Annotation:
A member of the RNA family "Bacterial small subunit ribosomal RNA" from Caldicellulosiruptor saccharolyticus, 569 nucleotides of a longer RNA. The literature on the family includes a 2002 paper in BMC Bioinformatics by Cannone et al., "The comparative RNA web (CRW) site: an online database of comparative sequence and structure information for ribosomal, intron, and other RNAs".
[Rfam]
RNA sequence: UUAAUUGAGAGUUUGAUCCUGGCUCAGGACGAACGCUGGCGGCGUGCCUAACGCAUGCAAGUCGAGCGGAGAUGGUGGUUGAAGGUGAUGAGCUGGAGGCUGCCAUCUUAGCGGCGGACGGGUGAGUAACACGUGAGCAACCUACCCCCAGCACGGGGAUAACAGCUCGAAAGGGCUGCUAAUACCCGAUGGGACCACGUCAUCGCAUGGUGAUGUGGUGAAAGGGUAGCCGGGGAGGCUAUACUGGCUGGGGAUGGGCUCGCGGCCCAUCAGCUAGUUGGUGAGGUAACGGCUCACCAAGGCGACGACGGGUAGCCGGCCUGAGAGGGUGUACGGCCACAGUGGGACUGAGACACGGCCCACACUCCUACGGGAGGCAGCAGCGGGGAAUCUUGCGCAAUGGGCGGAAGCCUGACGCAGCGACGCCGCGUGAGGGAUGAAGCCCUUCGGGGUGUAAACCUCUUUGGACGGGGAGAAGAAGGAGAUAGUACCCGUUUAAAAAGCCACGGCUAACUACGUGCCAGCAGCCGCGGUAAUACGUAGGUGGCGAGCGUUGUCCGGAAUUACUG
Numbered sequence: 001u002u003a004a005u006u007g008a009g010a011g012u013u014u015g016a017u018c019c020u021g022g023c024u025c026a027g028g029a030c031g032a033a034c035g036c037u038g039g040c041g042g043c044g045u046g047c048c049u050a051a052c053g054c055a056u057g058c059a060a061g062u063c064g065a066g067c068g069g070a071g072a073u074g075g076u077g078g079u080u081g082a083a084g085g086u087g088a089u090g091a092g093c094u095g096g097a098g099g100c101u102g103c104c105a106u107c108u109u110a111g112c113g114g115c116g117g118a119c120g121g122g123u124g125a126g127u128a129a130c131a132c133g134u135g136a137g138c139a140a141c142c143u144a145c146c147c148c149c150a151g152c153a154c155g156g157g158g159a160u161a162a163c164a165g166c167u168c169g170a171a172a173g174g175g176c177u178g179c180u181a182a183u184a185c186c187c188g189a190u191g192g193g194a195c196c197a198c199g200u201c202a203u204c205g206c207a208u209g210g211u212g213a214u215g216u217g218g219u220g221a222a223a224g225g226g227u228a229g230c231c232g233g234g235g236a237g238g239c240u241a242u243a244c245u246g247g248c249u250g251g252g253g254a255u256g257g258g259c260u261c262g263c264g265g266c267c268c269a270u271c272a273g274c275u276a277g278u279u280g281g282u283g284a285g286g287u288a289a290c291g292g293c294u295c296a297c298c299a300a301g302g303c304g305a306c307g308a309c310g311g312g313u314a315g316c317c318g319g320c321c322u323g324a325g326a327g328g329g330u331g332u333a334c335g336g337c338c339a340c341a342g343u344g345g346g347a348c349u350g351a352g353a354c355a356c357g358g359c360c361c362a363c364a365c366u367c368c369u370a371c372g373g374g375a376g377g378c379a380g381c382a383g384c385g386g387g388g389a390a391u392c393u394u395g396c397g398c399a400a401u402g403g404g405c406g407g408a409a410g411c412c413u414g415a416c417g418c419a420g421c422g423a424c425g426c427c428g429c430g431u432g433a434g435g436g437a438u439g440a441a442g443c444c445c446u447u448c449g450g451g452g453u454g455u456a457a458a459c460c461u462c463u464u465u466g467g468a469c470g471g472g473g474a475g476a477a478g479a480a481g482g483a484g485a486u487a488g489u490a491c492c493c494g495u496u497u498a499a500a501a502a503g504c505c506a507c508g509g510c511u512a513a514c515u516a517c518g519u520g521c522c523a524g525c526a527g528c529c530g531c532g533g534u535a536a537u538a539c540g541u542a543g544g545u546g547g548c549g550a551g552c553g554u555u556g557u558c559c560g561g562a563a564u565u566a567c568u569g
Stems, first nucleotide, its partner, number of pairs: 009025005027559004032555006039429006045422002047387001052385003056382003061115003066112002069109002072089002075086002122340003132264007141257002146253007154188004163178006194219007202211003224245002266312003273303003278300008315337004319330004342363005365376004393419001395418003401414005432462004442453004467496006476486001503548005514543005524531002